[Rfam]
RNA sequence: UGAUUUCCACGUAGAGCGCGUGGAAGGUAAACAAAAAAAUGCUCACCGAGU
Number, nucleotide and partner (000 for none) at each position: 001u000002g000003a000004u000005u000006u024007c023008c022009a021010c020011g019012u000013a000014g044015a043016g042017c041018g000019c011020g010021u009022g008023g007024a006025a000026g000027g000028u000029a000030a000031a000032c000033a000034a000035a000036a000037a000038a000039a000040u000041g017042c016043u015044c014045a000046c000047c000048g000049a000050g000051u000
RNA: 6A RNA